[Rfam]
RNA sequence: AGCAUUUGCUCACUUGUUUUGCUUGUUGUGUGAGUAACAACAUAUAAGCGAAUGCUGAGACUAAAACCUUCUUUUGCAACCCAUAACUCAUUUGUAUGAGUUAUGUUACUUAUGAGAAGGGACAGC
Numbered sequence: 001a002g003c004a005u006u007u008g009c010u011c012a013c014u015u016g017u018u019u020u021g022c023u024u025g026u027u028g029u030g031u032g033a034g035u036a037a038c039a040a041c042a043u044a045u046a047a048g049c050g051a052a053u054g055c056u057g058a059g060a061c062u063a064a065a066a067c068c069u070u071c072u073u074u075u076g077c078a079a080c081c082c083a084u085a086a087c088u089c090a091u092u093u094g095u096a097u098g099a100g101u102u103a104u105g106u107u108a109c110u111u112a113u114g115a116g117a118a119g120g121g122a123c124a125g126c
Base pairs, nucleotide, nucleotide: 001056002055003054004053005052006051007050008049009048016041017040018039019037020036021035022034027032067121068120069119072117073116074115075114076113082105083104084103085102086101087100088099089098090097091096
A member of the RNA family "Small nucleolar RNA SNORA40" from Geotrypetes seraphini, 126 nucleotides long. Lineage of the source: Eukaryota > Teleostomi > Tetrapoda > Gymnophiona > Geotrypetes. The family's RNA type in Rfam is H/ACA-box small nucleolar RNA. A search with the family's covariance model found it, with a score of 71 bits. The snoRNA ACA 40 belongs to the H/ACA family of snoRNAs and guides the pseudouridylation of 28S rRNA subunit at position U4565. The family's consensus secondary structure was predicted with RNAalifold. The family has 28 seed sequences and 2,550 matches in Rfam 15.1.